[Rfam]
RNA sequence: CUGCAGAUAUUGUCAGGCCUCAUUCUACCUUCCAAGUCUCAGAGCCUUGGAAGGUAGAAUGAGGCCUGAUAAUCUCUACAG
Dot-bracket structure: (((.(((.((..((((((((((((((((((((.................))))))))))))))))))))..)).))).)))
Rfam assigns this 81-nucleotide RNA sequence from Macaca fascicularis to the family "mir-4650 microRNA precursor family". The base pairs follow the family's consensus structure, which was predicted with RNAalifold. Its family is annotated with miRNA-mediated post-transcriptional gene silencing and RISC complex in the Gene Ontology.